[Rfam]
RNA sequence: UCGAUGGGUAGAGGCUGCGGAAUUUAUCAGUACGGUGCGCGAGUUUGACAACGUUGAACGCAUCUGAAAGGAAAUUUUGCCGAAGUUCUUUUUUCACAGUCAAUGGAAAAAGUGCUGGGGUCAUUCUGAAGAAGAAUGGCACUGUCAUUUGCGUUUUGCGCAAAUGAAGAGCUACAGGGAUG
Numbered sequence: 001u002c003g004a005u006g007g008g009u010a011g012a013g014g015c016u017g018c019g020g021a022a023u024u025u026a027u028c029a030g031u032a033c034g035g036u037g038c039g040c041g042a043g044u045u046u047g048a049c050a051a052c053g054u055u056g057a058a059c060g061c062a063u064c065u066g067a068a069a070g071g072a073a074a075u076u077u078u079g080c081c082g083a084a085g086u087u088c089u090u091u092u093u094u095c096a097c098a099g100u101c102a103a104u105g106g107a108a109a110a111a112g113u114g115c116u117g118g119g120g121u122c123a124u125u126c127u128g129a130a131g132a133a134g135a136a137u138g139g140c141a142c143u144g145u146c147a148u149u150u151g152c153g154u155u156u157u158g159c160g161c162a163a164a165u166g167a168a169g170a171g172c173u174a175c176a177g178g179g180a181u182g
Stems, first nucleotide, its partner, number of pairs: 008175004017080009034064006084116003088112008117143002120140008145167007
This 182-nucleotide RNA from Planococcus massiliensis belongs to the Rfam family "Lysine riboswitch aptamer". The source organism's lineage runs through Bacteria, Bacillati, Bacillota, Bacilli and Planococcus.